c-di-GMP-I riboswitch aptamer: an 80-nucleotide sequence from Edaphosphingomonas laterariae. Lineage of the source: Bacteria > Pseudomonadati > Alphaproteobacteria > Rhizorhabdaceae > Edaphosphingomonas. The literature on the family includes a 2007 paper in Nucleic Acids Res by Weinberg et al., "Identification of 22 candidate structured RNAs in bacteria using the CMfinder comparative genomics pipeline". Pairs were carried over by alignment from the consensus structure, which is taken from published work.
RNA sequence: CUCAGCAAAGGGCAAACUGUCGGUGACGGCAAGACGCAAAACCUCCGGCCUUUUCUGUUGAAGGUAGCGGGGUUGCCUGG
Numbered sequence: 001c002u003c004a005g006c007a008a009a010g011g012g013c014a015a016a017c018u019g020u021c022g023g024u025g026a027c028g029g030c031a032a033g034a035c036g037c038a039a040a041a042c043c044u045c046c047g048g049c050c051u052u053u054u055c056u057g058u059u060g061a062a063g064g065u066a067g068c069g070g071g072g073u074u075g076c077c078u079g080g
Stems, first nucleotide, its partner, number of pairs: 012037002018031005040074004045070003048065006